[Rfam]
RNA: Small nucleolar RNA Z43
Organism: Brassica carinata
RNA sequence: GGACAGUGAUGAUUGAUAUAGGUCUCGUUCGUCAUAAUAUGGGCCGUAAAAGGUCUAUUUGCCGACCAUCCUGUUAUAUACUGAGUCC
Numbered sequence: 001g002g003a004c005a006g007u008g009a010u011g012a013u014u015g016a017u018a019u020a021g022g023u024c025u026c027g028u029u030c031g032u033c034a035u036a037a038u039a040u041g042g043g044c045c046g047u048a049a050a051a052g053g054u055c056u057a058u059u060u061g062c063c064g065a066c067c068a069u070c071c072u073g074u075u076a077u078a079u080a081c082u083g084a085g086u087c088c
Stems, first nucleotide, its partner, number of pairs: 001088004048060003